Notes
Shown here is a 119-nucleotide sequence from Limoniibacter endophyticus, a member of the family "Alphaproteobacterial ar14". Its family is annotated with biological process involved in symbiotic interaction in the Gene Ontology. It is annotated as a small RNA.
RNA sequence: GUAAGUGUUGGUGAUCGACCUCCUCCCCGAGAUCCAACACUCAGAUACGAUGUAUCCUCCUCCCACAUCGUAUCUUCAGAUCAAGCCCGCCGGAUCUCCUCCCCCGGCGGGCUUUUUCU
Dot-bracket structure: ......(((.(...((............))...).)))....((((((((((.............)))))))))).......(((((((((((..........))))))))))).....